[Rfam]
RNA sequence: GAAGCAGGUAGCAAUUGCAGUGUUCCCUCACAUGGAAUCACUGCCAUAUCCCUGCUGAGAGCAAUUCUGUUAUAUGGGAUUUGAUUUCUCCUCCAUCCUGGUGAAAAUUAGCCUCCUUUUAACAGUGACAA
Numbered sequence: 001g002a003a004g005c006a007g008g009u010a011g012c013a014a015u016u017g018c019a020g021u022g023u024u025c026c027c028u029c030a031c032a033u034g035g036a037a038u039c040a041c042u043g044c045c046a047u048a049u050c051c052c053u054g055c056u057g058a059g060a061g062c063a064a065u066u067c068u069g070u071u072a073u074a075u076g077g078g079a080u081u082u083g084a085u086u087u088c089u090c091c092u093c094c095a096u097c098c099u100g101g102u103g104a105a106a107a108u109u110a111g112c113c114u115c116c117u118u119u120u121a122a123c124a125g126u127g128a129c130a131a
Base pairs, nucleotide, nucleotide: 003056004055005054006053007052008051018043019042020041021040022039024037026035067125068124069123070122071121072120074118076116077115083109084108085106086105087104088103090101091100

Small nucleolar RNA SNORA69: a 131-nucleotide RNA from Notechis scutatus.
The family's RNA type in Rfam is H/ACA-box small nucleolar RNA.
U69 is a member of the H/ACA class of small nucleolar RNAs (snoRNAs) which act as guides in the the modification of uridines to pseudouridines.
The source organism's lineage runs through Eukaryota, Opisthokonta, Craniata, Hydrophiinae and Notechis.